[Rfam]
RNA sequence: UACGAGGAUAGAGGAGCGACGUUUAUUAGUAUCUGUAUUGAUGUAAGCAAAAUGAUGUACAGUGAAAGGGAAUGUCGCCGAAGUAUACAGCUGAUGCUUUAAGGCUGUAUAACUGGUUUUAUUUCAGAAUAUGAGUAAGACUGUCACAAAUUAUUUUGUGGAGAGCUAUCAUUCAA
Numbered sequence: 001u002a003c004g005a006g007g008a009u010a011g012a013g014g015a016g017c018g019a020c021g022u023u024u025a026u027u028a029g030u031a032u033c034u035g036u037a038u039u040g041a042u043g044u045a046a047g048c049a050a051a052a053u054g055a056u057g058u059a060c061a062g063u064g065a066a067a068g069g070g071a072a073u074g075u076c077g078c079c080g081a082a083g084u085a086u087a088c089a090g091c092u093g094a095u096g097c098u099u100u101a102a103g104g105c106u107g108u109a110u111a112a113c114u115g116g117u118u119u120u121a122u123u124u125c126a127g128a129a130u131a132u133g134a135g136u137a138a139g140a141c142u143g144u145c146a147c148a149a150a151u152u153a154u155u156u157u158g159u160g161g162a163g164a165g166c167u168a169u170c171a172u173u174c175a176a
Stems, first nucleotide, its partner, number of pairs: 007170005016078009033062006082114003085110008115142010144161007
A member of the RNA family "Lysine riboswitch aptamer" from Clostridium tetanomorphum, 176 nucleotides long. About the family: Riboswitches are metabolite binding domains within certain messenger RNAs that serve as precision sensors for their corresponding targets. Its family is annotated with lysine biosynthetic process in the Gene Ontology. The family's consensus secondary structure is taken from published work.